[Rfam]
RNA sequence: UUGAUUGUGAGGUGGAAAUCUAGAGGGAGCCGCAAGCAAAUUGCGGAGCCUGACGAACAGGAAGUGGAUAGAUAUAACGUAGCGAGGCGAGUAGGUCAAGAUCUGUAAAGCGCAUUGUACAGAACGCUACGACGUAGCGUCGACAGGCAUAAGCAAGAUCAUACGCAUU
Numbered sequence: 001u002u003g004a005u006u007g008u009g010a011g012g013u014g015g016a017a018a019u020c021u022a023g024a025g026g027g028a029g030c031c032g033c034a035a036g037c038a039a040a041u042u043g044c045g046g047a048g049c050c051u052g053a054c055g056a057a058c059a060g061g062a063a064g065u066g067g068a069u070a071g072a073u074a075u076a077a078c079g080u081a082g083c084g085a086g087g088c089g090a091g092u093a094g095g096u097c098a099a100g101a102u103c104u105g106u107a108a109a110g111c112g113c114a115u116u117g118u119a120c121a122g123a124a125c126g127c128u129a130c131g132a133c134g135u136a137g138c139g140u141c142g143a144c145a146g147g148c149a150u151a152a153g154c155a156a157g158a159u160c161a162u163a164c165g166c167a168u169u
Stems, first nucleotide, its partner, number of pairs: 001016002004013003029169001032166002036162001041156004047150001048148005065142003074135002078131007087111002091106004